RNA sequence: UUUGCAUUAAUGAAGACUACACAGAAAACCUUUGUUAAGGAUUUGUGUGGCCCUGAUGCUUAGCAAA
Numbered sequence: 001u002u003u004g005c006a007u008u009a010a011u012g013a014a015g016a017c018u019a020c021a022c023a024g025a026a027a028a029c030c031u032u033u034g035u036u037a038a039g040g041a042u043u044u045g046u047g048u049g050g051c052c053c054u055g056a057u058g059c060u061u062a063g064c065a066a067a
Base pairs, nucleotide, nucleotide: 001067002066003065004064005063015053017050018049019048020047021046022045023044024043030039031038032037
RNA: Selenocysteine insertion sequence 1
Organism: Jaculus jaculus